[Rfam]
RNA sequence: CAGGUUAUAUGCCUUUAUUGUCAAUGUUUGCUUUUUGUUGGCCCAUUGCGAAGCGUACUGAUUUGCCAACAAUCAUAAUGACAAGCCCGAACGAAUGUUCGGGCUUUUUUUUACCUGAUCGA
Numbered sequence: 001c002a003g004g005u006u007a008u009a010u011g012c013c014u015u016u017a018u019u020g021u022c023a024a025u026g027u028u029u030g031c032u033u034u035u036u037g038u039u040g041g042c043c044c045a046u047u048g049c050g051a052a053g054c055g056u057a058c059u060g061a062u063u064u065g066c067c068a069a070c071a072a073u074c075a076u077a078a079u080g081a082c083a084a085g086c087c088c089g090a091a092c093g094a095a096u097g098u099u100c101g102g103g104c105u106u107u108u109u110u111u112u113a114c115c116u117g118a119u120c121g122a
Stems, first nucleotide, its partner, number of pairs: 007021003010017002037070006080108002083106010